This 76-nucleotide RNA from Sulfuriferula plumbiphila belongs to the Rfam family "SAH (S-adenosyl-L-homocysteine) riboswitch aptamer". The family has 52 seed sequences and 1,354 matches in Rfam 15.1. Rfam links the family to the GO terms regulation of gene expression and S-adenosylhomocysteine metabolic process.

[Rfam]
RNA sequence: AGCCUUGAGGAGCGUUGCGACGGGUUUCAUCCCGCCAGGCUCAAGGCGUUUCAAUUUGAAACGGCGCUCACGUCUU
Numbered sequence: 001a002g003c004c005u006u007g008a009g010g011a012g013c014g015u016u017g018c019g020a021c022g023g024g025u026u027u028c029a030u031c032c033c034g035c036c037a038g039g040c041u042c043a044a045g046g047c048g049u050u051u052c053a054a055u056u057u058g059a060a061a062c063g064g065c066g067c068u069c070a071c072g073u074c075u076u
Base pairs, nucleotide, nucleotide: 002047003046004045005044006043007042008041021034022033023032024031